[Rfam]
RNA sequence: UGCAGUGUUACAGUACCUGCACCCAGCAGCUUUCUCCUGGUGGGAUGUUCAAAAAGCAGUGCUACACCAGUGCAGCAUCUGGCAUCCUUGGUUUUCAUUCUGUGUAGGUUUAACUGGUGAUGUGCUGAAACAGUC
Numbered sequence: 001u002g003c004a005g006u007g008u009u010a011c012a013g014u015a016c017c018u019g020c021a022c023c024c025a026g027c028a029g030c031u032u033u034c035u036c037c038u039g040g041u042g043g044g045a046u047g048u049u050c051a052a053a054a055a056g057c058a059g060u061g062c063u064a065c066a067c068c069a070g071u072g073c074a075g076c077a078u079c080u081g082g083c084a085u086c087c088u089u090g091g092u093u094u095u096c097a098u099u100c101u102g103u104g105u106a107g108g109u110u111u112a113a114c115u116g117g118u119g120a121u122g123u124g125c126u127g128a129a130a131c132a133g134u135c
Base pairs, nucleotide, nucleotide: 002062003061004060006058007057018053019048020047021046023044024043025041027039028038029037065124066123067122070121071120072118073117075115082105083104084103085102
The family of this 135-nucleotide sequence from Chloropsis hardwickii is "Small nucleolar RNA SNORA8". About the family: ACA8 is a member of the H/ACA class of snoRNA that guide the sites of modification of uridines to pseudouridines. The base pairs follow the family's consensus structure, which was predicted with RNAfold. The family's RNA type in Rfam is H/ACA-box small nucleolar RNA.